This 77-nucleotide RNA from Azospirillum sp. TSH58 belongs to the Rfam family "Makes More Granules Regulator RNA (mmgR)".
Its family is annotated with response to nitrogen compound, DNA-templated transcription, termination and protein binding in the Gene Ontology.
Taxonomically the source falls in Azospirillum (Bacteria, Alphaproteobacteria, Rhodospirillales, Azospirillaceae).
For this family Rfam cites "Evidence for a second class of S-adenosylmethionine riboswitches and other regulatory RNA motifs in alpha-proteobacteria" (Corbino et al., Genome Biol, 2005).
Clan: suhB sRNA clan.
[Rfam]
RNA sequence: UCCGCCAGCCCAUUCUCGGGGCGUUUCCUCCCUAGACUCAAGGCCGGAGCGUUGCUCCGGCCUUUUUUUCGUCCGCG
Numbered sequence: 001u002c003c004g005c006c007a008g009c010c011c012a013u014u015c016u017c018g019g020g021g022c023g024u025u026u027c028c029u030c031c032c033u034a035g036a037c038u039c040a041a042g043g044c045c046g047g048a049g050c051g052u053u054g055c056u057c058c059g060g061c062c063u064u065u066u067u068u069u070c071g072u073c074c075g076c077g
Base pairs, nucleotide, nucleotide: 008022009021010020011019042062043061044060045059046058047057048056049055050054
It is annotated as a small RNA.